Shown here is a 119-nucleotide RNA from Thiohalophilus thiocyanatoxydans, a member of the family "Group II catalytic intron D1-D4-2". The literature on the family includes a 2001 paper in Trends Genet by Bonen and Vogel, "The ins and outs of group II introns". Lineage of the source: Bacteria > Pseudomonadati > Thiohalomonadales > Thiohalophilaceae > Thiohalophilus. A search with the family's covariance model found it, with a score of 50 bits.
[Rfam]
RNA sequence: GGGAGUAUGGCCUCCCGGAGUCUGCCUGCAGGGGCCGGCUUCAAACCGCCCGGUGCUGCUGCGUUCAAAAAUAACGGGGUCGGACCAAUGCAAGUUUAUGAUUUGGCAAUAAAUUAUGC
Number, nucleotide and partner (000 for none) at each position: 001g016002g015003g014004a013005g012006u000007a000008u000009g000010g000011c000012c005013u004014c003015c002016c001017g042018g041019a040020g039021u038022c037023u000024g035025c034026c033027u032028g000029c000030a000031g000032g027033g026034g025035c024036c000037g022038g021039c020040u019041u018042c017043a000044a000045a000046c000047c118048g000049c000050c000051c000052g086053g085054u084055g000056c082057u000058g080059c079060u078061g000062c076063g075064u074065u073066c000067a000068a000069a000070a000071a000072u000073a065074a064075c063076g062077g000078g060079g059080u058081c000082g056083g000084a054085c053086c052087a000088a000089u000090g000091c000092a000093a000094g115095u000096u113097u112098a000099u000100g000101a000102u000103u000104u000105g000106g000107c000108a000109a000110u000111a000112a097113a096114u000115u094116a000117u000118g047119c000